[Rfam]
RNA sequence: GCGGAGGGGCGGACGGCCGCUUGGGGGUAACCCCGAGAGGAAAGUCCGGACUCACCAAGGCGCCGGUGCCGGGUAACGCCCGGGCAGGGCAACCUGACGGACAGCGCCACAGAAAACAAACCGCCGUGCCGCCCGGACCUGUCCGGGGGAUCGGUGCGGUAAGGGUGAAACGGUGGGGUAAGAGCCCACCGGGGGGAUGGCAACAUCGCCCGCAUGGCAAGCCCCACCGGGAGCAAUGCCUAAUAGGGAUCUCGCGCCCGUCUGAUGCCGCUUGCGGCAUAUCGGGGCAGGGCGGCUUUGGCCCGAGAGAUCCGGGUUGGCAGCUAGAGCCACGUGGCAACAUGUGGCCCAGAGGAAUGGUCGUCUGAGGGCGGGGCAACCCGUCGUAUAACAGAAUCCGGCUUACAGGCCCUCCGCGCAC
Numbered sequence: 001g002c003g004g005a006g007g008g009g010c011g012g013a014c015g016g017c018c019g020c021u022u023g024g025g026g027g028u029a030a031c032c033c034c035g036a037g038a039g040g041a042a043a044g045u046c047c048g049g050a051c052u053c054a055c056c057a058a059g060g061c062g063c064c065g066g067u068g069c070c071g072g073g074u075a076a077c078g079c080c081c082g083g084g085c086a087g088g089g090c091a092a093c094c095u096g097a098c099g100g101a102c103a104g105c106g107c108c109a110c111a112g113a114a115a116a117c118a119a120a121c122c123g124c125c126g127u128g129c130c131g132c133c134c135g136g137a138c139c140u141g142u143c144c145g146g147g148g149g150a151u152c153g154g155u156g157c158g159g160u161a162a163g164g165g166u167g168a169a170a171c172g173g174u175g176g177g178g179u180a181a182g183a184g185c186c187c188a189c190c191g192g193g194g195g196g197a198u199g200g201c202a203a204c205a206u207c208g209c210c211c212g213c214a215u216g217g218c219a220a221g222c223c224c225c226a227c228c229g230g231g232a233g234c235a236a237u238g239c240c241u242a243a244u245a246g247g248g249a250u251c252u253c254g255c256g257c258c259c260g261u262c263u264g265a266u267g268c269c270g271c272u273u274g275c276g277g278c279a280u281a282u283c284g285g286g287g288c289a290g291g292g293c294g295g296c297u298u299u300g301g302c303c304c305g306a307g308a309g310a311u312c313c314g315g316g317u318u319g320g321c322a323g324c325u326a327g328a329g330c331c332a333c334g335u336g337g338c339a340a341c342a343u344g345u346g347g348c349c350c351a352g353a354g355g356a357a358u359g360g361u362c363g364u365c366u367g368a369g370g371g372c373g374g375g376g377c378a379a380c381c382c383g384u385c386g387u388a389u390a391a392c393a394g395a396a397u398c399c400g401g402c403u404u405a406c407a408g409g410c411c412c413u414c415c416g417c418g419c420a421c
Base pairs, nucleotide, nucleotide: 001417002416003415004414005413006412007411008410010408011406012365013364014363015362016361017360018359020037021036022035023034024033025032026031042404043403044402046401047400048399049398050397051233052232053231059298060297064229065228066227067226068225069083070082071081072080073079084098085096086095087094088093099224100223104222105221106218107217108216121164122163123160124159125158126157127156128155129154130153131152172190173189174188175187176186177185191213192211193210194209196207197206198205199204237322238321239320240319247313248312249311250310251309252308290304291303292302293301329348330347331346332345333344334343335342336341
This 421-nucleotide sequence from Sagittula marina belongs to the Rfam family "Bacterial RNase P class A". It scores 279 bits against the family's covariance model. The family's consensus secondary structure is taken from published work.